[Rfam]
RNA sequence: CGUACGAAAGGGCAAACUCAUUGAAAGGUGAGGACGCAAAACUAUAGGAGCUAAAGUCUUCCAGACAAAGCUAGCCAGUUACCGAA
Numbered sequence: 001c002g003u004a005c006g007a008a009a010g011g012g013c014a015a016a017c018u019c020a021u022u023g024a025a026a027g028g029u030g031a032g033g034a035c036g037c038a039a040a041a042c043u044a045u046a047g048g049a050g051c052u053a054a055a056g057u058c059u060u061c062c063a064g065a066c067a068a069a070g071c072u073a074g075c076c077a078g079u080u081a082c083c084g085a086a
Stems, first nucleotide, its partner, number of pairs: 012037002017032006040080004047076002049072003056066004

The family of this 86-nucleotide RNA sequence from Aquibacillus halophilus is "c-di-GMP-I riboswitch aptamer". About the family: GEMM was predicted in a large-scale screen for bacterial structured RNA regulatory elements. Its family is annotated with cyclic-di-GMP binding in the Gene Ontology. The family's consensus secondary structure is taken from published work. Taxonomically the source falls in Aquibacillus (Bacteria, Bacillati, Bacilli, Bacillaceae).